[Rfam]
RNA sequence: GGUCGGGAGUAUGAAGGUGAUACAACACCCACAAGGGAAAAGCCUUUUGCCGUUUCCUGUGUAGCGGUUUGAGAGCUCCUGACCUUUUUACU
Numbered sequence: 001g002g003u004c005g006g007g008a009g010u011a012u013g014a015a016g017g018u019g020a021u022a023c024a025a026c027a028c029c030c031a032c033a034a035g036g037g038a039a040a041a042g043c044c045u046u047u048u049g050c051c052g053u054u055u056c057c058u059g060u061g062u063a064g065c066g067g068u069u070u071g072a073g074a075g076c077u078c079c080u081g082a083c084c085u086u087u088u089u090a091c092u
Stems, first nucleotide, its partner, number of pairs: 001084009013047004018042001028037003049068005
This 92-nucleotide sequence from Halodesulfovibrio spirochaetisodalis belongs to the Rfam family "sRNA-Xcc1". A reference for the family is Chen et al. (2011), "sRNA-Xcc1, an integron-encoded transposon- and plasmid-transferred trans-acting sRNA, is under the positive control of the key virulence regulators HrpG and HrpX of Xanthomonas campestris pathovar campestris", RNA Biol. The family has 74 seed sequences and 421 matches in Rfam 15.1. The family's RNA type in Rfam is small RNA.